[Rfam]
RNA sequence: UAACUGGGACGACCCAGUUCAUCUGAUUUUUUCCGGGACGACCCG
Numbered sequence: 001u002a003a004c005u006g007g008g009a010c011g012a013c014c015c016a017g018u019u020c021a022u023c024u025g026a027u028u029u030u031u032u033c034c035g036g037g038a039c040g041a042c043c044c045g
Stems, first nucleotide, its partner, number of pairs: 002019007034045004
Dot-bracket structure: .(((((((....)))))))..............((((....))))
The family of this 45-nucleotide RNA from Aerobium aerolatum is "Guanidine-II riboswitch aptamer (mini-ykkC)".
The organism belongs to Aerobium aerolatum, within Bacteria.
About the family: Simpler in structure and has fewer highly conserved nucleotide positions than the ykkC-yxkD leader. Despite this each of its two stem-loop structures directly bind free guanidine.
Pairs were carried over by alignment from the consensus structure, which is taken from published work.
It scores 38 bits against the family's covariance model.